[Rfam]
RNA sequence: CGUUGACGGGCUUGAAAUCUUGCUCUCCCGUGGCUUUGGACAGGGUGAGCAAAGUUUCAGGUGUGUCGAAGG
Numbered sequence: 001c002g003u004u005g006a007c008g009g010g011c012u013u014g015a016a017a018u019c020u021u022g023c024u025c026u027c028c029c030g031u032g033g034c035u036u037u038g039g040a041c042a043g044g045g046u047g048a049g050c051a052a053a054g055u056u057u058c059a060g061g062u063g064u065g066u067c068g069a070a071g072g
Stems, first nucleotide, its partner, number of pairs: 003069005010062006017055002020052002023049003027045003
RNA: mir-87 microRNA precursor family
Organism: Asbolus verrucosus